[Rfam]
Nucleotides: 116
Base pairs, nucleotide, nucleotide: 014108015107016106017105018104019103020102021101031096035092036091037090039085040084041083044080047079048078050076052074055071056070057069058068059067
Number, partner (000 for none) and nucleotide at each position: 001000u002000a003000c004000u005000u006000u007000a008000a009000c010000u011000u012000u013000c014108u015107g016106g017105u018104g019103u020102c021101u022000u023000a024000u025000g026000a027000u028000g029000a030000a031096g032000c033000u034000u035092c036091a037090u038000a039085g040084g041083g042000c043000a044080g045000a046000u047079u048078c049000u050076g051000a052074g053000u054000u055071g056070a057069g058068a059067a060000a061000u062000a063000a064000a065000a066000u067059u068058u069057c070056u071055c072000u073000c074052c075000a076050c077000u078048g079047a080044u081000c082000c083041u084040c085039u086000c087000u088000a089000u090037a091036u092035g093000c094000c095000a096031u097000c098000u099000g100000a101021a102020g103019a104018c105017a106016c107015u108014g109000u110000a111000u112000a113000u114000u115000g116000c
Source information
Shown here is a 116-nucleotide sequence from Lanius ludovicianus, a member of the family "Small nucleolar RNA SNORD90". Rfam classes the family as a C/D-box small nucleolar RNA. A reference for the family is Huttenhofer et al. (2001), "RNomics: an experimental approach that identifies 201 candidates for novel, small, non-messenger RNAs in mouse", EMBO J. NCBI's taxonomy places the organism under Eukaryota, Sauria, Coelurosauria, Australaves, Lanius. Rfam links the family to the GO terms nucleolus and RNA processing. Rfam's curators write: snoRNA HBII-295 belongs to the family of C/D snoRNAs. It is the human orthologue of the mouse MBII-295 and has no identified RNA target.